[Rfam]
This 62-nucleotide RNA sequence from Caenorhabditis remanei belongs to the Rfam family "mir-2229 microRNA precursor family". Rfam 15.1 lists 7 matches to the family in 2 species. The source organism's lineage runs through Eukaryota, Protostomia, Rhabditoidea, Peloderinae and Caenorhabditis. Rfam links the family to the GO terms RISC complex and miRNA-mediated post-transcriptional gene silencing. Rfam's curators put it in the seed alignment. The base pairs follow the family's consensus structure, which was predicted with RNAalifold.
RNA sequence: ACAGUUUUCUCAGGGCUUUGAACGCUCACUGAAAAACGUUGAAAGACUGAAGAGUACUGUGA
Numbered sequence: 001a002c003a004g005u006u007u008u009c010u011c012a013g014g015g016c017u018u019u020g021a022a023c024g025c026u027c028a029c030u031g032a033a034a035a036a037c038g039u040u041g042a043a044a045g046a047c048u049g050a051a052g053a054g055u056a057c058u059g060u061g062a
Stems, first nucleotide, its partner, number of pairs: 002059003007054004011049003016045004022039002026035001
Dot-bracket structure: .(((..(((((((..((((..((..(........)..))..)))).))).))))..)))...